The family of this 39-nucleotide sequence from Oceanobacillus iheyensis is "Ribosomal protein L19 leader".
RNA sequence: ACGAUGUUCCGCUGUCCCAUACUUGUUCAUGAGCAUUAG
Numbered sequence: 001a002c003g004a005u006g007u008u009c010c011g012c013u014g015u016c017c018c019a020u021a022c023u024u025g026u027u028c029a030u031g032a033g034c035a036u037u038a039g
Stems, first nucleotide, its partner, number of pairs: 003037007013029002017025001019023001
Dot-bracket structure: ..(((((((...((..(.(...).)..)).)))))))..
Taxonomically the source falls in Oceanobacillus iheyensis (Bacteria, Bacillati, Caryophanales, Oceanobacillus). The family's RNA type in Rfam is cis-regulatory leader. This family is a putative r-protein leader autoregulatory structure found in B. subtilis and other low-GC Gram-positive bacteria. It is located in the 5' untranslated regions of mRNAs encoding ribosomal protein L19 (rplS). The family's consensus secondary structure was predicted with CMfinder. The sequence is in the family's curated seed alignment. For this family Rfam cites "Diverse mechanisms for regulating ribosomal protein synthesis in Escherichia coli" (Zengel and Lindahl, Prog Nucleic Acid Res Mol Biol, 1994).